[Rfam]
RNA sequence: UCCGUGAUAGUUUAAUGGUCAGAAUGGGCGCUUGUCGCGUGCCAGAUCGGGGUUCAAUUCCCCGUCGCGGAG
Number, nucleotide and partner (000 for none) at each position: 001u071002c070003c069004g068005u067006g066007a065008u000009a000010g025011u024012u023013u022014a000015a000016u000017g000018g000019u000020c000021a000022g013023a012024a011025u010026g000027g043028g042029c041030g040031c039032u000033u000034g000035u000036c000037g000038c000039g031040u030041g029042c028043c027044a000045g000046a000047u000048c064049g063050g062051g061052g060053u000054u000055c000056a000057a000058u000059u000060c052061c051062c050063c049064g048065u007066c006067g005068c004069g003070g002071a001072g000
Source information
A member of the RNA family "tRNA" from Saccharomyces cerevisiae, 72 nucleotides long. For this family Rfam cites "tRNAscan-SE: a program for improved detection of transfer RNA genes in genomic sequence" (Lowe and Eddy, Nucleic Acids Res, 1997). Rfam's curators put it in the seed alignment. The base pairs follow the family's consensus structure, which is taken from published work.